[Rfam]
RNA sequence: CGGCUGUAGCUAUAUCAAACUCAAACUGCUGAGAAGUUAACUGGCCGGUUGUCGCGUUUUAAAUCGACUAAUCUGCUUACCGAACUUCUCACAUUU
Numbered sequence: 001c002g003g004c005u006g007u008a009g010c011u012a013u014a015u016c017a018a019a020c021u022c023a024a025a026c027u028g029c030u031g032a033g034a035a036g037u038u039a040a041c042u043g044g045c046c047g048g049u050u051g052u053c054g055c056g057u058u059u060u061a062a063a064u065c066g067a068c069u070a071a072u073c074u075g076c077u078u079a080c081c082g083a084a085c086u087u088c089u090c091a092c093a094u095u096u
Stems, first nucleotide, its partner, number of pairs: 031090008043077003047073004051068004

This 96-nucleotide RNA from Trema andersonii belongs to the Rfam family "Small nucleolar RNA snoR109". Its family is annotated with RNA processing and nucleolus in the Gene Ontology. Lineage of the source: Eukaryota > Streptophytina > rosids > fabids > Trema.